[Rfam]
RNA: int-alpA RNA
RNA sequence: GGGGCGGCUAGGGUAGCUCCCGAAAGGCCGGUUUCCGCCCGGUCUGCCGCUCCGUUUUACCUGCGG
Numbered sequence: 001g002g003g004g005c006g007g008c009u010a011g012g013g014u015a016g017c018u019c020c021c022g023a024a025a026g027g028c029c030g031g032u033u034u035c036c037g038c039c040c041g042g043u044c045u046g047c048c049g050c051u052c053c054g055u056u057u058u059a060c061c062u063g064c065g066g
Stems, first nucleotide, its partner, number of pairs: 001053008011021003027043005035066004